[Rfam]
RNA sequence: UGCAGCCCAGUCAAAUUCGGUCCCUGUCCCUCAGUGUCGGGGACCGGCCACCGGCUGCCACAGCAAUCCCCGUGCUCCACGUGUCCCCUGUCCCCUGCUGGGACCAGGGGAGCGGAACCCCACGGACACUG
Numbered sequence: 001u002g003c004a005g006c007c008c009a010g011u012c013a014a015a016u017u018c019g020g021u022c023c024c025u026g027u028c029c030c031u032c033a034g035u036g037u038c039g040g041g042g043a044c045c046g047g048c049c050a051c052c053g054g055c056u057g058c059c060a061c062a063g064c065a066a067u068c069c070c071c072g073u074g075c076u077c078c079a080c081g082u083g084u085c086c087c088c089u090g091u092c093c094c095c096u097g098c099u100g101g102g103a104c105c106a107g108g109g110g111a112g113c114g115g116a117a118c119c120c121c122a123c124g125g126a127c128a129c130u131g
Base pairs, nucleotide, nucleotide: 002058003057004056005055018046019045020044021043022042023041024040025039026038028036072123073122074121084110085109087108